RNA: ACEA small nucleolar RNA U3
Organism: Hamiltosporidium magnivora
RNA sequence: GCGUCAUACUAUUCAGAAUCGUUUGUAUAGUAGGUUCGCAUUCCAAAUCACAUGAUUUGCAGCACAUACGACUAGGAUGACGAAAGAUGACCACAUCACCUUCACGGAAUAAAGAGUGUAAAACUCUGUUGAUGAAGUGGUUGAUUCAUUUCAAUUGGUGGUGUGGUUUUCUGACUAGUC
Numbered sequence: 001g002c003g004u005c006a007u008a009c010u011a012u013u014c015a016g017a018a019u020c021g022u023u024u025g026u027a028u029a030g031u032a033g034g035u036u037c038g039c040a041u042u043c044c045a046a047a048u049c050a051c052a053u054g055a056u057u058u059g060c061a062g063c064a065c066a067u068a069c070g071a072c073u074a075g076g077a078u079g080a081c082g083a084a085a086g087a088u089g090a091c092c093a094c095a096u097c098a099c100c101u102u103c104a105c106g107g108a109a110u111a112a113a114g115a116g117u118g119u120a121a122a123a124c125u126c127u128g129u130u131g132a133u134g135a136a137g138u139g140g141u142u143g144a145u146u147c148a149u150u151u152c153a154a155u156u157g158g159u160g161g162u163g164u165g166g167u168u169u170u171c172u173g174a175c176u177a178g179u180c
Stems, first nucleotide, its partner, number of pairs: 001039003005033001007032004015026001017024002041062002044059006071179005090167005096161005103139003113127003140155004